[Rfam]
Rfam assigns this 76-nucleotide RNA from Alligator mississippiensis to the family "Mammalian CPEB3 ribozyme". About the family: The mammalian CPEB3 ribozyme is a self cleaving RNA located in the second intron of the CPEB3 gene which belongs to a family of genes regulating messenger RNA polyadenylation. This ribozyme is highly conserved and found only in mammals. It scores 42 bits against the family's covariance model. The family's consensus secondary structure is taken from published work.

RNA sequence: GGUCGCAAGUUUGAGGCCAUAGCAGAAGCACUCAUGGCAUGGCCUGCCAGAUUCCAACAAAUCUGUGAAUUCUGCU
Number, nucleotide and partner (000 for none) at each position: 001g000002g000003u000004c000005g000006c000007a000008a000009g000010u000011u000012u000013g000014a000015g044016g043017c042018c041019a000020u000021a076022g075023c074024a073025g072026a071027a070028g040029c000030a000031c000032u000033c000034a000035u000036g000037g000038c000039a000040u028041g018042g017043c016044c015045u000046g000047c000048c065049a064050g063051a062052u061053u060054c000055c000056a000057a000058c000059a000060a053061a052062u051063c050064u049065g048066u000067g000068a000069a000070u027071u026072c025073u024074g023075c022076u021
Rfam links the family to the GO term RNA nuclease activity.